Shown here is a 99-nucleotide RNA from Brochothrix campestris, a member of the family "TPP riboswitch aptamer (THI element)". The organism belongs to Brochothrix campestris, within Bacteria. Rfam describes the family as follows. Vitamin B(1) in its active form thiamin pyrophosphate (TPP) is an essential coenzyme that is synthesised by coupling of pyrimidine and thiazole moieties in bacteria.
RNA sequence: CUUUAAUUGCGGGGGGACACUUCGGUGUUGAGAAGGUUAAAACCUGACCCUUAGAACCUGACAGUUAACACUGACGUAGGGAGCAAUUAGUGGUGUAAU
Numbered sequence: 001c002u003u004u005a006a007u008u009g010c011g012g013g014g015g016g017a018c019a020c021u022u023c024g025g026u027g028u029u030g031a032g033a034a035g036g037u038u039a040a041a042a043c044c045u046g047a048c049c050c051u052u053a054g055a056a057c058c059u060g061a062c063a064g065u066u067a068a069c070a071c072u073g074a075c076g077u078a079g080g081g082a083g084c085a086a087u088u089a090g091u092g093g094u095g096u097a098a099u
Stems, first nucleotide, its partner, number of pairs: 006087005011051004016045001017028004035044003057080004062073003
Dot-bracket structure: .....(((((((((.(((((....))))......(((....))))..)))).....((((.(((......)))...))))..)))))............